[Rfam]
Small nucleolar RNA Z103: a 97-nucleotide sequence from Apostasia shenzhenica. The base pairs follow the family's consensus structure, which was predicted with PFOLD. Gene Ontology terms of the family: RNA processing and nucleolus. By type it is a C/D-box small nucleolar RNA. NCBI's taxonomy places the organism under Eukaryota, Magnoliopsida, Mesangiospermae, Asparagales, Apostasia.
RNA sequence: GUGUGAAACGAUGAUAUUUUCCCCGCAUGAUCGACUUUGAUUACACUGUUUUUUAUAAUUUCUUUCUAGAGAAGUCAAGCCAGUCGCUCUGAUCCGC
Numbered sequence: 001g002u003g004u005g006a007a008a009c010g011a012u013g014a015u016a017u018u019u020u021c022c023c024c025g026c027a028u029g030a031u032c033g034a035c036u037u038u039g040a041u042u043a044c045a046c047u048g049u050u051u052u053u054u055a056u057a058a059u060u061u062c063u064u065u066c067u068a069g070a071g072a073a074g075u076c077a078a079g080c081c082a083g084u085c086g087c088u089c090u091g092a093u094c095c096g097c
Base pairs, nucleotide, nucleotide: 001097002096003095005094006093